[Rfam]
RNA: SAM (S-adenosyl methionine) riboswitch aptamer
RNA sequence: GGUCUUGAGUACCAGCGCGACAGCCCCGGCUUGCUGGUCGGCAACCCUCCUCCUGCGGCGGGGUGCCCCGGGUGACGACCAGGCCCUGGCUACCUGCCGGAGCAAGCGCUCGUC
Numbered sequence: 001g002g003u004c005u006u007g008a009g010u011a012c013c014a015g016c017g018c019g020a021c022a023g024c025c026c027c028g029g030c031u032u033g034c035u036g037g038u039c040g041g042c043a044a045c046c047c048u049c050c051u052c053c054u055g056c057g058g059c060g061g062g063g064u065g066c067c068c069c070g071g072g073u074g075a076c077g078a079c080c081a082g083g084c085c086c087u088g089g090c091u092a093c094c095u096g097c098c099g100g101a102g103c104a105a106g107c108g109c110u111c112g113u114c
Stems, first nucleotide, its partner, number of pairs: 001080004009039001011038006022031002040067003045063003049058002083103002086100005